RNA sequence: UGGCGCCCAAUGUGGGGGCUCCUGGCACGGGGGAGUCAAUGAGGGAGCCAUUUGAGAACGCCAGCUAAAAGUGAAAGCAAAUUGAAUCAAGGACUGAGGCCUGCGCAGACAACCACCUGACGUGCUGCCCGAGUCAUGGUGAGUGAACGACAACCCCAUCCCCUUUCCCCGACAUGGUCAAGCAUUGAGCAAACAUGAAUUGUUCAUGGGAGGCCUUAGCAAGGCAUUAAAGACAAGAGGGGUAAGGGUUAGAACAAAAGAAUUAUUGCAGUAUUUUCAAUUUAUUCAUAAGAUUUGCCUUU
Numbered sequence: 001u002g003g004c005g006c007c008c009a010a011u012g013u014g015g016g017g018g019c020u021c022c023u024g025g026c027a028c029g030g031g032g033g034a035g036u037c038a039a040u041g042a043g044g045g046a047g048c049c050a051u052u053u054g055a056g057a058a059c060g061c062c063a064g065c066u067a068a069a070a071g072u073g074a075a076a077g078c079a080a081a082u083u084g085a086a087u088c089a090a091g092g093a094c095u096g097a098g099g100c101c102u103g104c105g106c107a108g109a110c111a112a113c114c115a116c117c118u119g120a121c122g123u124g125c126u127g128c129c130c131g132a133g134u135c136a137u138g139g140u141g142a143g144u145g146a147a148c149g150a151c152a153a154c155c156c157c158a159u160c161c162c163c164u165u166u167c168c169c170c171g172a173c174a175u176g177g178u179c180a181a182g183c184a185u186u187g188a189g190c191a192a193a194c195a196u197g198a199a200u201u202g203u204u205c206a207u208g209g210g211a212g213g214c215c216u217u218a219g220c221a222a223g224g225c226a227u228u229a230a231a232g233a234c235a236a237g238a239g240g241g242g243u244a245a246g247g248g249u250u251a252g253a254a255c256a257a258a259a260g261a262a263u264u265a266u267u268g269c270a271g272u273a274u275u276u277u278c279a280a281u282u283u284a285u286u287c288a289u290a291a292g293a294u295u296u297g298c299c300u301u302u
Stems, first nucleotide, its partner, number of pairs: 006033003012028003038052003083122002086118001091114001094108003098104001131179002134177004186229003189225002237277004242272002246264002249261002290301003

This 302-nucleotide RNA sequence from Cavia porcellus belongs to the Rfam family "Mason-Pfizer monkey virus packaging signal".
Taxonomically the source falls in Cavia (Eukaryota, Deuterostomia, Boreoeutheria, Caviidae).
Rfam describes the family as follows. This family represents a group of sequences that are related to the Mason-Pfizer monkey virus (MPMV) packaging signal. The packaging signal is located in the 5' UTR and is required for specific RNA encapsidation.
Rfam links the family to the GO term viral genome packaging.
A search with the family's covariance model found it, with a score of 63 bits.
It is annotated as a cis-regulatory element.